Shown here is a 37-nucleotide RNA sequence, a member of the family "S4-Bacteroidia ribosomal protein leader". The family's RNA type in Rfam is cis-regulatory leader. Its Rfam clan is "Ribosomal Protein S4 Leader clan". For this family Rfam cites "Discovery of 20 novel ribosomal leader candidates in bacteria and archaea" (Eckert and Weinberg, BMC Microbiol, 2020).
RNA sequence: GACCCUCCCAUCACCUUUCUCUCGAGGGUCGCGGCUG
Numbered sequence: 001g002a003c004c005c006u007c008c009c010a011u012c013a014c015c016u017u018u019c020u021c022u023c024g025a026g027g028g029u030c031g032c033g034g035c036u037g
Stems, first nucleotide, its partner, number of pairs: 001030007